RNA: mir-927 microRNA precursor family
Organism: Hermetia illucens
RNA sequence: GCGUGCCUGAUUCGAUUUAGAAUUCCUACGCUUUACCGUAAUGAAAAUCUGGCAAAGCGUUUGGAUUCUGAAACGAGUUUGGC
Dot-bracket structure: ..........((.(.((((((.(((..(((((((.((.............)).)))))))..))).)))))).))).......